[Rfam]
This 79-nucleotide RNA belongs to the Rfam family "skipping-rope RNA".
RNA sequence: AUUUUUUGAGGUGAGAAAUGGCUCCUCACACGCUAAAUUUAGUAAAUAGAGAUGCAGGAUACCCGACCUGCCAAAAACU
Numbered sequence: 001a002u003u004u005u006u007u008g009a010g011g012u013g014a015g016a017a018a019u020g021g022c023u024c025c026u027c028a029c030a031c032g033c034u035a036a037a038u039u040u041a042g043u044a045a046a047u048a049g050a051g052a053u054g055c056a057g058g059a060u061a062c063c064c065g066a067c068c069u070g071c072c073a074a075a076a077a078c079u
Stems, first nucleotide, its partner, number of pairs: 001079001003077006011029005019065003023061001031049001032043004054071005